Small nucleolar RNA snoR27: a 101-nucleotide RNA sequence from Durio zibethinus. The family is grouped with related families in Rfam's "snR68 clan". The family's RNA type in Rfam is C/D-box small nucleolar RNA. The organism belongs to Durio, within Eukaryota.

[Rfam]
RNA sequence: UUUGGAUCAAAGAUGUUAAUUUUAUUCUGCGUUAUCUAUCUGACAGUACUUUCUUUGAAAGGAAACGAAGAUGACACUAAUCACACACACAGAGAUCCAGU
Dot-bracket structure: .((((((.......................................................................................)))))).
Numbered sequence: 001u002u003u004g005g006a007u008c009a010a011a012g013a014u015g016u017u018a019a020u021u022u023u024a025u026u027c028u029g030c031g032u033u034a035u036c037u038a039u040c041u042g043a044c045a046g047u048a049c050u051u052u053c054u055u056u057g058a059a060a061g062g063a064a065a066c067g068a069a070g071a072u073g074a075c076a077c078u079a080a081u082c083a084c085a086c087a088c089a090c091a092g093a094g095a096u097c098c099a100g101u
Stems, first nucleotide, its partner, number of pairs: 002100006